[Rfam]
RNA sequence: GGUCUGUGAUGAAUAGUAAAAGGUCUGAUUAUCCCAAGACUUGCAGUUCCAUACCCUCUUCUCCCAGCAGUUUCUCCCCAGCCAUGGCACAGCAAUGGUGUGGCUGGCAGAGUGUUUGCUGACAGCGUGAGAUGCGCUCAGGUCAUGUUCACCUGGAGCAGCGGAGACAUGACCUGGGAUCAGCAUCCAACAGUCCUGCUUGAAGGAGUUUGGGGUCUUGGAUUGGUCUAACUGGACAUGUGAUCUGACUUUUCUGCUGAGACC
Numbered sequence: 001g002g003u004c005u006g007u008g009a010u011g012a013a014u015a016g017u018a019a020a021a022g023g024u025c026u027g028a029u030u031a032u033c034c035c036a037a038g039a040c041u042u043g044c045a046g047u048u049c050c051a052u053a054c055c056c057u058c059u060u061c062u063c064c065c066a067g068c069a070g071u072u073u074c075u076c077c078c079c080a081g082c083c084a085u086g087g088c089a090c091a092g093c094a095a096u097g098g099u100g101u102g103g104c105u106g107g108c109a110g111a112g113u114g115u116u117u118g119c120u121g122a123c124a125g126c127g128u129g130a131g132a133u134g135c136g137c138u139c140a141g142g143u144c145a146u147g148u149u150c151a152c153c154u155g156g157a158g159c160a161g162c163g164g165a166g167a168c169a170u171g172a173c174c175u176g177g178g179a180u181c182a183g184c185a186u187c188c189a190a191c192a193g194u195c196c197u198g199c200u201u202g203a204a205g206g207a208g209u210u211u212g213g214g215g216u217c218u219u220g221g222a223u224u225g226g227u228c229u230a231a232c233u234g235g236a237c238a239u240g241u242g243a244u245c246u247g248a249c250u251u252u253u254c255u256g257c258u259g260a261g262a263c264c
Base pairs, nucleotide, nucleotide: 001264002263003262004261037246038245039244041242045218046217061208062207063206064205065121066120067119068118069117070116078107079106080105081104082103083102084101085100086099129188131187132186133185134184135183141174142173143172144171145170146169147168148167149166

Record summary:
Small Cajal body specific RNA 6: a 264-nucleotide RNA sequence from Irena cyanogastra. From the family's description: U88 is small Cajal body specific RNA (scaRNA). scaRNAs are a novel class of small nuclear RNAs which localise to the Cajal bodies. U88 is found associated with both fibrillarin and Gar1p and co-localises with coilin in Cajal bodies. It scores 118 bits against the family's covariance model.